RNA sequence: GGGAGAAAUCUAUAAAGCUCAGGAGGGAUAGCGCCAUGGUUCACUACAGGGCUUCGUUUGCUUUUUUGAGGCAGCUUUUUCUUCUUCUUCUGUGACGCUAUCUAUCCUGAGCAUUACAGAUUCUUCUA
Numbered sequence: 001g002g003g004a005g006a007a008a009u010c011u012a013u014a015a016a017g018c019u020c021a022g023g024a025g026g027g028a029u030a031g032c033g034c035c036a037u038g039g040u041u042c043a044c045u046a047c048a049g050g051g052c053u054u055c056g057u058u059u060g061c062u063u064u065u066u067u068g069a070g071g072c073a074g075c076u077u078u079u080u081c082u083u084c085u086u087c088u089u090c091u092g093u094g095a096c097g098c099u100a101u102c103u104a105u106c107c108u109g110a111g112c113a114u115u116a117c118a119g120a121u122u123c124u125u126c127u128a
Stems, first nucleotide, its partner, number of pairs: 010119001017112008026103008035094004
RNA: MIR390 microRNA precursor family